This 65-nucleotide RNA sequence belongs to the Rfam family "nhaA-I RNA". Acidobacteria, Alphaproteobacteria, Betaproteobacteria and Gammaproteobacteria, Verrucomicrobia, cand. division NC10. The sequence is in the family's curated seed alignment. Pairs were carried over by alignment from the consensus structure, which is taken from published work.
[Rfam]
RNA sequence: GGGUGUGACUUUUGCACAUGGCAUAGUUACAGGUUAAUUAAUCUUGAAUGGUCGGGCCGCCAUUC
Dot-bracket structure: ....((((((.(..........).))))))...............(((((((......)))))))